[Rfam]
RNA sequence: GUCAGUCCCCAGCCUAAGCAGGUCAUCCACGGUAAGAGUUCCCAUAGGGAACCGCCUGUUUAGGUGCCCAAAAGGGCAUGCUGGGGGACAGGAGGA
Numbered sequence: 001g002u003c004a005g006u007c008c009c010c011a012g013c014c015u016a017a018g019c020a021g022g023u024c025a026u027c028c029a030c031g032g033u034a035a036g037a038g039u040u041c042c043c044a045u046a047g048g049g050a051a052c053c054g055c056c057u058g059u060u061u062a063g064g065u066g067c068c069c070a071a072a073a074g075g076g077c078a079u080g081c082u083g084g085g086g087g088a089c090a091g092g093a094g095g096a
Stems, first nucleotide, its partner, number of pairs: 005089005010083004015062009036053001038052005065078005